The record is an 82-nucleotide RNA from Haemonchus contortus, which matches "mir-228 microRNA precursor family" in Rfam. It is one of the family's seed sequences. Rfam links the family to the GO terms RISC complex and miRNA-mediated post-transcriptional gene silencing. The family has 5 seed sequences and 30 matches in Rfam 15.1. Its Rfam clan is "mir-182 clan".
RNA sequence: GGAGAUCCCGAAAUGGCACUGCAUGAAUUCACGGUUGUUGCUCGGGCCGUGCAUCCAGUGGUUCCAUACCGGGUCGCUGCCG
Numbered sequence: 001g002g003a004g005a006u007c008c009c010g011a012a013a014u015g016g017c018a019c020u021g022c023a024u025g026a027a028u029u030c031a032c033g034g035u036u037g038u039u040g041c042u043c044g045g046g047c048c049g050u051g052c053a054u055c056c057a058g059u060g061g062u063u064c065c066a067u068a069c070c071g072g073g074u075c076g077c078u079g080c081c082g
Stems, first nucleotide, its partner, number of pairs: 007073004013067004018062005025055002028053001030051001032049003